[Rfam]
This 149-nucleotide RNA sequence belongs to the Rfam family "RT-14 RNA".

Nucleotides: 149
Base pairs, nucleotide, nucleotide: 003056004055005054006053007052008051009050013047014046020041021040022039023038024037025036026035027034028033078088079087080086081085102149103148104147105146106145107144108143109142110141111140112139113138114137120132121131122130123129
Number, partner (000 for none) and nucleotide at each position: 001000c002000u003056c004055u005054a006053a007052u008051a009050c010000a011000a012000a013047u014046u015000g016000a017000g018000a019000u020041u021040a022039u023038a024037u025036a026035u027034u028033u029000u030000a031000a032000g033028g034027a035026a036025u037024a038023u039022a040021u041020a042000c043000a044000g045000u046014a047013a048000g049000u050009g051008u052007a053006u054005u055004a056003g057000u058000a059000u060000u061000a062000a063000a064000g065000a066000g067000a068000c069000u070000u071000a072000u073000u074000c075000c076000u077000u078088c079087c080086u081085a082000a083000u084000g085081u086080a087079g088078g089000u090000a091000a092000a093000a094000a095000u096000g097000a098000a099000u100000c101000a102149g103148c104147a105146a106145a107144a108143u109142a110141u111140g112139u113138a114137u115000u116000a117000g118000u119000a120132a121131a122130a123129u124000u125000u126000u127000a128000u129123a130122u131121u132120u133000g134000a135000a136000u137114a138113u139112a140111u141110g142109u143108a144107u145106u146105u147104u148103g149102c
It is one of the family's seed sequences.